[Rfam]
RNA sequence: GUUGGGAAGAGGAAGAAAGAGAGGGCCUAAGAGCAGUGGGAAUGGGAACAUAGAGGAAAGCCCAACCUGUUCGUUUUCUCCUCUGGCAGCAGAGGUGGAAGCUAAUCUUGGUUCGGUAUUUCCCAGUGCCUCCCAUUCCUAUCGUUCUUAGGCACUCCUUCCUUUUCCCUUUGGCU
Numbered sequence: 001g002u003u004g005g006g007a008a009g010a011g012g013a014a015g016a017a018a019g020a021g022a023g024g025g026c027c028u029a030a031g032a033g034c035a036g037u038g039g040g041a042a043u044g045g046g047a048a049c050a051u052a053g054a055g056g057a058a059a060g061c062c063c064a065a066c067c068u069g070u071u072c073g074u075u076u077u078c079u080c081c082u083c084u085g086g087c088a089g090c091a092g093a094g095g096u097g098g099a100a101g102c103u104a105a106u107c108u109u110g111g112u113u114c115g116g117u118a119u120u121u122c123c124c125a126g127u128g129c130c131u132c133c134c135a136u137u138c139c140u141a142u143c144g145u146u147c148u149u150a151g152g153c154a155c156u157c158c159u160u161c162c163u164u165u166u167c168c169c170u171u172u173g174g175c176u
Stems, first nucleotide, its partner, number of pairs: 009167005015161003021157003026152009037141011049128003053124001055123005060117002
The record is a 176-nucleotide RNA sequence from Panicum virgatum, which matches "MIR2118 microRNA precursor family" in Rfam. The match comes from Rfam's covariance-model search (138 bits). The organism belongs to Panicum sect. Hiantes, within Eukaryota.